[Rfam]
RNA: Mammalian CPEB3 ribozyme
RNA sequence: UGAGGGUUGAAGGCCACCGCAGAAGCGCUCAUGGUAUGGCCAUGUUGGAUUCCAACAAAUCUGUGAAUUCUGCU
Numbered sequence: 001u002g003a004g005g006g007u008u009g010a011a012g013g014c015c016a017c018c019g020c021a022g023a024a025g026c027g028c029u030c031a032u033g034g035u036a037u038g039g040c041c042a043u044g045u046u047g048g049a050u051u052c053c054a055a056c057a058a059a060u061c062u063g064u065g066a067a068u069u070c071u072g073c074u
Base pairs, nucleotide, nucleotide: 012041013040014039015038019073020072021071022070023069024068025037027035046063047062048061049060050059051058